[Rfam]
RNA sequence: AAGACCCUCGAGUCAAUAAACACCGCGAAGAUUGACUCAAAAACAAA
Numbered sequence: 001a002a003g004a005c006c007c008u009c010g011a012g013u014c015a016a017u018a019a020a021c022a023c024c025g026c027g028a029a030g031a032u033u034g035a036c037u038c039a040a041a042a043a044c045a046a047a
Stems, first nucleotide, its partner, number of pairs: 008040001010038008
Plastid-rpl16 group II-D1 intron: a 47-nucleotide RNA from Corymbia citriodora. Rfam 15.1 lists 1,446 matches to the family in 693 species. Taxonomically the source falls in Corymbia citriodora (Eukaryota, Streptophyta, Streptophytina, Myrtaceae). For this family Rfam cites "Retrograde signaling in plants: A critical review focusing on the GUN pathway and beyond" (Richter et al., Plant Commun, 2023). About the family: Plastid-rpl16 is a non-coding RNA (ncRNA) recognised in plastids. It was recognised in and intronic region of a ribosome rpl16 gene. The match comes from Rfam's covariance-model search (52 bits).